Shown here is a 96-nucleotide RNA from Coffea arabica, a member of the family "small nucleolar RNA snoR126". It is annotated as a C/D-box small nucleolar RNA. The family has 4 seed sequences and 423 matches in Rfam 15.1. Lineage of the source: Eukaryota > Viridiplantae > Streptophyta > Mesangiospermae > Coffea. Its family is annotated with nucleolus and RNA processing in the Gene Ontology.
RNA sequence: GGGCAAUGAAGAUUGAAAUCGUUUCUCGAUGCUGAGUUGGUUGAUUACUCGACCAUUGUUUUUCUUUGAUGACCGAUUUGUGCGUGUCUGAGCUCC
Numbered sequence: 001g002g003g004c005a006a007u008g009a010a011g012a013u014u015g016a017a018a019u020c021g022u023u024u025c026u027c028g029a030u031g032c033u034g035a036g037u038u039g040g041u042u043g044a045u046u047a048c049u050c051g052a053c054c055a056u057u058g059u060u061u062u063u064c065u066u067u068g069a070u071g072a073c074c075g076a077u078u079u080g081u082g083c084g085u086g087u088c089u090g091a092g093c094u095c096c
Base pairs, nucleotide, nucleotide: 001095002094003093004092

On this family, see Chen and Wu, Nucleic Acids Res 2009: "Mining small RNA sequencing data: a new approach to identify small nucleolar RNAs in Arabidopsis". The base pairs follow the family's consensus structure, which was predicted with RNAalifold.